[Rfam]
RNA sequence: UUUCAUCUUCGGGGCGUGGUGAAAUUCCCGACCGGCGGUAAUGGACAUGGUCCUUGAGCCCGCGAGCCGAUAAGGCAGGAUCCGGUGUAAUUCCGGAGCCGACAGUAUAGUCUGGAUGGGAGAAGAUGAAG
Numbered sequence: 001u002u003u004c005a006u007c008u009u010c011g012g013g014g015c016g017u018g019g020u021g022a023a024a025u026u027c028c029c030g031a032c033c034g035g036c037g038g039u040a041a042u043g044g045a046c047a048u049g050g051u052c053c054u055u056g057a058g059c060c061c062g063c064g065a066g067c068c069g070a071u072a073a074g075g076c077a078g079g080a081u082c083c084g085g086u087g088u089a090a091u092u093c094c095g096g097a098g099c100c101g102a103c104a105g106u107a108u109a110g111u112c113u114g115g116a117u118g119g120g121a122g123a124a125g126a127u128g129a130a131g
Base pairs, nucleotide, nucleotide: 003129004128005127006126007125008124009123010122018028019027031111032110033101034100035063036062037061038060058099059098068075081097082096083095084094085093103114104113105112
The family of this 131-nucleotide RNA sequence from Domibacillus iocasae is "FMN riboswitch aptamer (RFN element)".